[Rfam]
RNA: Streptomyces RNA 1601
RNA sequence: GACGACCGGCUGGACGUGUAUGCCCAAGGUGAAAGCCAAGGCAUACGGGCCCGGCCCACAAGUGGAGGCUUCGAACUCCCACCUGACCGCCCUCAGGGCGGCGGGUCACCGGUCAGACGGUCCCGUCCCAGCGGCGGUGAUCCGUCCGAAGUGCGCCCCGCGGCCAUCGCGGCGGUCGUUCCGGUAGUUCGAGGAGCCCCGCCUGUGAUCGUCCGGGGCAUUUUUC
Numbered sequence: 001g002a003c004g005a006c007c008g009g010c011u012g013g014a015c016g017u018g019u020a021u022g023c024c025c026a027a028g029g030u031g032a033a034a035g036c037c038a039a040g041g042c043a044u045a046c047g048g049g050c051c052c053g054g055c056c057c058a059c060a061a062g063u064g065g066a067g068g069c070u071u072c073g074a075a076c077u078c079c080c081a082c083c084u085g086a087c088c089g090c091c092c093u094c095a096g097g098g099c100g101g102c103g104g105g106u107c108a109c110c111g112g113u114c115a116g117a118c119g120g121u122c123c124c125g126u127c128c129c130a131g132c133g134g135c136g137g138u139g140a141u142c143c144g145u146c147c148g149a150a151g152u153g154c155g156c157c158c159c160g161c162g163g164c165c166a167u168c169g170c171g172g173c174g175g176u177c178g179u180u181c182c183g184g185u186a187g188u189u190c191g192a193g194g195a196g197c198c199c200c201g202c203c204u205g206u207g208a209u210c211g212u213c214c215g216g217g218g219c220a221u222u223u224u225u226c
Stems, first nucleotide, its partner, number of pairs: 004114006012052002053107005059085002062082004066077002087101006116146005123137005155219006161211003168207003171203005178197005